The family of this 62-nucleotide RNA from Erinaceus europaeus is "Gag/pol translational readthrough site". Pairs were carried over by alignment from the consensus structure, which is taken from published work. Rfam classes the family as a cis-regulatory element. A reference for the family is Wills et al. (1994), "Pseudoknot-dependent read-through of retroviral gag termination codons: importance of sequences in the spacer and loop 2", EMBO J.
[Rfam]
RNA sequence: UAGGGACGACAGGGUUCGGGUCCCCUCCCCGAACCCAGGGUAACUUUAAAAAUAGAGGGGAA
Numbered sequence: 001u002a003g004g005g006a007c008g009a010c011a012g013g014g015u016u017c018g019g020g021u022c023c024c025c026u027c028c029c030c031g032a033a034c035c036c037a038g039g040g041u042a043a044c045u046u047u048a049a050a051a052a053u054a055g056a057g058g059g060g061a062a
Base pairs, nucleotide, nucleotide: 008041010039012036013035014034015033016031018029019028022060023059024058025057026056027055